This 93-nucleotide RNA sequence from Corynebacterium sphenisci belongs to the Rfam family "TPP riboswitch aptamer (THI element)". Lineage of the source: Bacteria > Actinomycetes > Corynebacteriaceae > Corynebacterium > Corynebacterium sphenisci.
RNA sequence: UGCACGGGAGCCCCGGGGAGCCGGGGCUGAGAGGAGGGCGCGUACCGCCCUCGACCGUCGAACCUGAUCCGGGUAAUGCCGGCGCAGGGAGCA
Number, nucleotide and partner (000 for none) at each position: 001u093002g092003c091004a058005c057006g056007g055008g000009a000010g027011c026012c025013c024014c023015g000016g000017g000018g000019a000020g000021c000022c000023g014024g013025g012026g011027c010028u000029g000030a000031g000032a000033g000034g052035a051036g050037g049038g048039c047040g046041c000042g000043u000044a000045c000046c040047g039048c038049c037050c036051u035052c034053g000054a000055c007056c006057g005058u004059c000060g000061a000062a000063c088064c087065u086066g085067a000068u000069c082070c081071g080072g079073g000074u000075a000076a000077u000078g000079c072080c071081g070082g069083c000084g000085c066086a065087g064088g063089g000090a000091g003092c002093a001